[Rfam]
RNA sequence: GAGUAGCCCAGAUAGCAGCGGCAUCCUCUUGUGUUAGCGAUAGCGGACACAAGAGAUAUAGCGAAUAGCUGGAAAUAGC
Numbered sequence: 001g002a003g004u005a006g007c008c009c010a011g012a013u014a015g016c017a018g019c020g021g022c023a024u025c026c027u028c029u030u031g032u033g034u035u036a037g038c039g040a041u042a043g044c045g046g047a048c049a050c051a052a053g054a055g056a057u058a059u060a061g062c063g064a065a066u067a068g069c070u071g072g073a074a075a076u077a078g079c
Stems, first nucleotide, its partner, number of pairs: 009071003013067002018062002023057003028053008
RNA: Flavo-1 RNA